The family of this 104-nucleotide RNA from Nyctereutes procyonoides is "mir-8904 microRNA precursor family". The family's consensus secondary structure was predicted with RNAalifold.
RNA sequence: CCUCAGGCUCCCUGGGACACCAACAGAGCACCUGCGCCCCGGGGAGACUACGCUGAGCUCCCUAAAGGGCUGCAGCAUGCUCACAGCUGGACCCGGGAGCAGCU
Numbered sequence: 001c002c003u004c005a006g007g008c009u010c011c012c013u014g015g016g017a018c019a020c021c022a023a024c025a026g027a028g029c030a031c032c033u034g035c036g037c038c039c040c041g042g043g044g045a046g047a048c049u050a051c052g053c054u055g056a057g058c059u060c061c062c063u064a065a066a067g068g069g070c071u072g073c074a075g076c077a078u079g080c081u082c083a084c085a086g087c088u089g090g091a092c093c094c095g096g097g098a099g100c101a102g103c104u
Stems, first nucleotide, its partner, number of pairs: 007100006014093002018089002020086001028080002032075004036070004041063006049055002